[Rfam]
Nucleotides: 067
Stems, first nucleotide, its partner, number of pairs: 001067004006063001007060008016051001019048001021046007
Number, partner (000 for none) and nucleotide at each position: 001067c002066g003065a004064g005000u006063g007060u008059g009058c010057a011056u012055u013054g014053u015000a016051g017000u018000u019048g020000c021046a022045u023044u024043g025042c026041a027040u028000a029000g030000a031000u032000g033000a034000u035000a036000a037000a038000u039000u040027g041026u042025g043024c044023a045022a046021u047000a048019c049000u050000u051016c052000g053014a054013c055012a056011g057010u058009g059008c060007a061000a062000c063006u064004c065003u066002c067001g